[Rfam]
RNA sequence: CACAAACGCGCUACAAGCUCUUGCCAGGUCUGACUAGUACUGUUGCGAGAUCCUGAGGCGUGUGAGA
Numbered sequence: 001c002a003c004a005a006a007c008g009c010g011c012u013a014c015a016a017g018c019u020c021u022u023g024c025c026a027g028g029u030c031u032g033a034c035u036a037g038u039a040c041u042g043u044u045g046c047g048a049g050a051u052c053c054u055g056a057g058g059c060g061u062g063u064g065a066g067a
Stems, first nucleotide, its partner, number of pairs: 006063007020049004
Trypanosomatid snoRNA TB9Cs1H3: a 67-nucleotide RNA sequence from Trypanosoma vivax. The base pairs follow the family's consensus structure, which was predicted with WAR. NCBI's taxonomy places the organism under Eukaryota, Kinetoplastea, Metakinetoplastina, Trypanosomatida, Trypanosoma vivax.